[Rfam]
RNA sequence: UCAUAAUUUUACAUGAUUAUGGGUAGCACAAGGAUUAAUGUGAAACAAAUAAGUGAUAUGUGAAGAACAUUGGAGAAUUCAAAGAGUUAGUUGUUAGGAAGAAAACACUUUGUGUUUCUCGUGAAUCCUUCGGCUAUCCAUAAUCAUGUUGAAUGUGU
Numbered sequence: 001u002c003a004u005a006a007u008u009u010u011a012c013a014u015g016a017u018u019a020u021g022g023g024u025a026g027c028a029c030a031a032g033g034a035u036u037a038a039u040g041u042g043a044a045a046c047a048a049a050u051a052a053g054u055g056a057u058a059u060g061u062g063a064a065g066a067a068c069a070u071u072g073g074a075g076a077a078u079u080c081a082a083a084g085a086g087u088u089a090g091u092u093g094u095u096a097g098g099a100a101g102a103a104a105a106c107a108c109u110u111u112g113u114g115u116u117u118c119u120c121g122u123g124a125a126u127c128c129u130u131c132g133g134c135u136a137u138c139c140a141u142a143a144u145c146a147u148g149u150u151g152a153a154u155g156u157g158u
Stems, first nucleotide, its partner, number of pairs: 002157004007153003011149017030130007038122003042118006051110005066095004075088002078085001

A member of the RNA family "MIR6027 microRNA precursor family" from Solanum tuberosum, 158 nucleotides long. NCBI's taxonomy places the organism under Eukaryota, Streptophyta, Streptophytina, Solanoideae, Solanum. Rfam 15.1 lists 5 matches to the family in 5 species. The base pairs follow the family's consensus structure, which was predicted with RNAalifold.